About this RNA:
Small nucleolar RNA snoR111: a 121-nucleotide sequence from Lupinus angustifolius. The source organism's lineage runs through Eukaryota, Euphyllophyta, Mesangiospermae, fabids and Lupinus. The family's consensus secondary structure was predicted with WAR. It is annotated as an H/ACA-box small nucleolar RNA. Its family is annotated with nucleolus and RNA processing in the Gene Ontology. A reference for the family is Marker et al. (2002), "Experimental RNomics: identification of 140 candidates for small non-messenger RNAs in the plant Arabidopsis thaliana", Curr Biol.
RNA sequence: UAAAGAAUGGUAGAGUUUUUAACAGUGGCUCUUCUAUCGUUUUGAACAUUGAGGUAUAACAAUAUGGCUAGUCAUCGUUUCGGGCGUCAUUAUUGGCGUAUCGAUUGUUUCUCGUCUACAU
Numbered sequence: 001u002a003a004a005g006a007a008u009g010g011u012a013g014a015g016u017u018u019u020u021a022a023c024a025g026u027g028g029c030u031c032u033u034c035u036a037u038c039g040u041u042u043u044g045a046a047c048a049u050u051g052a053g054g055u056a057u058a059a060c061a062a063u064a065u066g067g068c069u070a071g072u073c074a075u076c077g078u079u080u081c082g083g084g085c086g087u088c089a090u091u092a093u094u095g096g097c098g099u100a101u102c103g104a105u106u107g108u109u110u111c112u113c114g115u116c117u118a119c120a121u
Stems, first nucleotide, its partner, number of pairs: 006041006013031004066117002070112002074105004084099006